[Rfam]
RNA sequence: AUCGACACUGAGUGGCCAGAUGAUGAUGACCUCUGAACGCAUAAUAAUCUGGCCACUCAGUGUAUAU
Numbered sequence: 001a002u003c004g005a006c007a008c009u010g011a012g013u014g015g016c017c018a019g020a021u022g023a024u025g026a027u028g029a030c031c032u033c034u035g036a037a038c039g040c041a042u043a044a045u046a047a048u049c050u051g052g053c054c055a056c057u058c059a060g061u062g063u064a065u066a067u
Stems, first nucleotide, its partner, number of pairs: 005063013019049003023045002026042003
Shown here is a 67-nucleotide sequence from Cnephaeus nilssonii, a member of the family "mir-9256 microRNA precursor family".
Rfam links the family to the GO terms miRNA-mediated post-transcriptional gene silencing and RISC complex.
The organism belongs to Cnephaeus, within Eukaryota.
The family has 8 seed sequences and 31,772 matches in Rfam 15.1.
A search with the family's covariance model found it, with a score of 81 bits.